[Rfam]
Nucleotides: 093
Stems, first nucleotide, its partner, number of pairs: 023082004029076002036073009049064005
Number, partner (000 for none) and nucleotide at each position: 001000a002000g003000a004000c005000u006000g007000g008000u009000a010000a011000u012000u013000u014000a015000a016000c017000g018000u019000a020000u021000c022000a023082c024081a025080c026079a027000g028000a029076g030075c031000c032000c033000c034000a035000a036073u037072a038071u039070u040069a041068g042067c043066c044065a045000g046000g047000g048000u049064g050063c051062c052061c053060u054000u055000u056000a057000a058000a059000a060053g061052g062051g063050g064049u065044u066043g067042g068041c069040u070039a071038a072037u073036a074000g075030g076029c077000a078000a079026u080025g081024u082023g083000g084000a085000a086000g087000u088000c089000u090000u091000a092000a093000c
The record is a 93-nucleotide RNA sequence from Pseudothioglobus singularis, which matches "t44 RNA" in Rfam. The family's RNA type in Rfam is small RNA. The match comes from Rfam's covariance-model search (45 bits). Lineage of the source: Bacteria > Gammaproteobacteria > Pseudothioglobaceae (SeqCode) > Pseudothioglobus (SeqCode) > Pseudothioglobus singularis (SeqCode). On this family, see Tjaden et al., Nucleic Acids Res 2002: "Transcriptome analysis of Escherichia coli using high-density oligonucleotide probe arrays".